The record is a 55-nucleotide sequence from Ruminiclostridium papyrosolvens, which matches "Na+ riboswitch aptamer (DUF1646)" in Rfam. Rfam links the family to the GO terms sodium ion binding and regulation of gene expression. The sequence is in the family's curated seed alignment.
[Rfam]
RNA sequence: GGUUGAACGGAUAACUACCGUUUUCAAGAGUACUUGGCUUCUGGGGUGGGAAGCU
Numbered sequence: 001g002g003u004u005g006a007a008c009g010g011a012u013a014a015c016u017a018c019c020g021u022u023u024u025c026a027a028g029a030g031u032a033c034u035u036g037g038c039u040u041c042u043g044g045g046g047u048g049g050g051a052a053g054c055u
Stems, first nucleotide, its partner, number of pairs: 003027003006022005036055007